Small nucleolar RNA SNORD124: a 104-nucleotide sequence from Orycteropus afer. A search with the family's covariance model found it, with a score of 121 bits.
RNA sequence: UGACUCCAAGGAAGGAAUGAUGUUACAAUUGAGUCUCAAGAAAAGGAUUCUGAGCCUCUGGGCUUUGAAAGAGCCACUUGGUCCCUGACCUUCCUGAAGGCAAA
Numbered sequence: 001u002g003a004c005u006c007c008a009a010g011g012a013a014g015g016a017a018u019g020a021u022g023u024u025a026c027a028a029u030u031g032a033g034u035c036u037c038a039a040g041a042a043a044a045g046g047a048u049u050c051u052g053a054g055c056c057u058c059u060g061g062g063c064u065u066u067g068a069a070a071g072a073g074c075c076a077c078u079u080g081g082u083c084c085c086u087g088a089c090c091u092u093c094c095u096g097a098a099g100g101c102a103a104a
Base pairs, nucleotide, nucleotide: 009095010094011093012092013091014090015089
A reference for the family is Yang et al. (2006), "snoSeeker: an advanced computational package for screening of guide and orphan snoRNA genes in the human genome", Nucleic Acids Res. Gene Ontology terms of the family: nucleolus and RNA processing. The source organism's lineage runs through Eukaryota, Eumetazoa, Dipnotetrapodomorpha, Tetrapoda and Orycteropus afer.